[Rfam]
RNA sequence: UACUUAGUUCUCUGUAAGUCGCUCUGGAUAAGAGCGACUGCUAAAUGACCUGUA
Numbered sequence: 001u002a003c004u005u006a007g008u009u010c011u012c013u014g015u016a017a018g019u020c021g022c023u024c025u026g027g028a029u030a031a032g033a034g035c036g037a038c039u040g041c042u043a044a045a046u047g048a049c050c051u052g053u054a
Stems, first nucleotide, its partner, number of pairs: 013043001014041003020036006
RNA: UnaL2 LINE 3' element
Organism: Cottoperca gobio